Record summary: This 221-nucleotide RNA sequence from Babesia bovis belongs to the Rfam family "Nuclear RNase P". The base pairs follow the family's consensus structure, which is taken from published work. The source organism's lineage runs through Eukaryota, Piroplasmida, Babesiidae, Babesia and Babesia bovis. Rfam 15.1 lists 3,848 matches to the family in 1,862 species. The family is grouped with related families in Rfam's "RNaseP clan". Rfam's curators write: Ribonuclease P (RNase P) is a ubiquitous endoribonuclease, found in archaea, bacteria and eukarya as well as chloroplasts and mitochondria. Its best characterised activity is the generation of mature 5'-ends of tRNAs by cleaving the 5'-leader elements of precursor-tRNAs. Cellular RNase Ps are ribonucleoproteins. RNA from bacterial RNase Ps retains its catalytic activity in the absence of the protein subunit, i.e. it is a ribozyme. Isolated eukaryotic and archaeal RNase P RNA has not been shown to retain its catalytic function, but is still essential for the catalytic activity of the holoenzyme. Although the archaeal and eukaryotic holoenzyme s have a much greater protein content than the bacterial ones, the RNA cores from all the three lineages are homologous -- helices corresponding to P1, P2, P3, P4, and P10/11 are common to all cellular RNase P RNAs. Yet, there is considerable sequence variation, particularly among the eukaryotic RNAs.
RNA sequence: ACGGGUGUUAGCCUGGCACUCUCUGCGAACACACGUGGCUUCAUACAUACAGAGGGGAAGGUCUGAGGAACCAGCGGGAGCUGAAAAGCUAAUCGUAGCAAAUACGAAAAACGCUCAACAGAAAACAGCUACGCUUGAAAGUGGCGUUAUGGUCAUGGCGUUACGCCUUUAGUCAAAUUGCCGGGGCUCUUGUAACUCAAUUCAGACUACUCAAUGCCCGU
Numbered sequence: 001a002c003g004g005g006u007g008u009u010a011g012c013c014u015g016g017c018a019c020u021c022u023c024u025g026c027g028a029a030c031a032c033a034c035g036u037g038g039c040u041u042c043a044u045a046c047a048u049a050c051a052g053a054g055g056g057g058a059a060g061g062u063c064u065g066a067g068g069a070a071c072c073a074g075c076g077g078g079a080g081c082u083g084a085a086a087a088g089c090u091a092a093u094c095g096u097a098g099c100a101a102a103u104a105c106g107a108a109a110a111a112c113g114c115u116c117a118a119c120a121g122a123a124a125a126c127a128g129c130u131a132c133g134c135u136u137g138a139a140a141g142u143g144g145c146g147u148u149a150u151g152g153u154c155a156u157g158g159c160g161u162u163a164c165g166c167c168u169u170u171a172g173u174c175a176a177a178u179u180g181c182c183g184g185g186g187c188u189c190u191u192g193u194a195a196c197u198c199a200a201u202u203c204a205g206a207c208u209a210c211u212c213a214a215u216g217c218c219c220g221u
Stems, first nucleotide, its partner, number of pairs: 001221004007215003012185007021054005063205005070153003079090004093107005110148006128134002186193002
Dot-bracket structure: ((((..(((..(((((((..(((((........................)))))........[[[[[..(((......((((....))))..(((((.....)))))..((((((............((...))........))))))..))).........................)))))))((....)).......]]]]].......)))..))))